Overview:
The family of this 173-nucleotide RNA sequence from Romboutsia sp. CE17 is "Lysine riboswitch aptamer". The family's consensus secondary structure is taken from published work. Lineage of the source: Bacteria > Bacillati > Bacillota > Clostridia > Romboutsia.

[Rfam]
RNA sequence: ACUAAUGAUAGAGGUCGCAAUAUUAAUAAGUAAUUUUGUGGAGGUAAGCACAGUGAAGCAAAAUGAAAGGUAAUGUUGCCGAAAUAUAUAAGUGACGCUUUAAGCUUAUAUGUUGGGGUUAUGCAUAAUAUGUAUAACACUGUCACAUAAAUUUGUGGAGUGCUAUCUUUAGA
Numbered sequence: 001a002c003u004a005a006u007g008a009u010a011g012a013g014g015u016c017g018c019a020a021u022a023u024u025a026a027u028a029a030g031u032a033a034u035u036u037u038g039u040g041g042a043g044g045u046a047a048g049c050a051c052a053g054u055g056a057a058g059c060a061a062a063a064u065g066a067a068a069g070g071u072a073a074u075g076u077u078g079c080c081g082a083a084a085u086a087u088a089u090a091a092g093u094g095a096c097g098c099u100u101u102a103a104g105c106u107u108a109u110a111u112g113u114u115g116g117g118g119u120u121a122u123g124c125a126u127a128a129u130a131u132g133u134a135u136a137a138c139a140c141u142g143u144c145a146c147a148u149a150a151a152u153u154u155g156u157g158g159a160g161u162g163c164u165a166u167c168u169u170u171a172g173a
Stems, first nucleotide, its partner, number of pairs: 007167005017079009033064007083114011115141002118138008143158005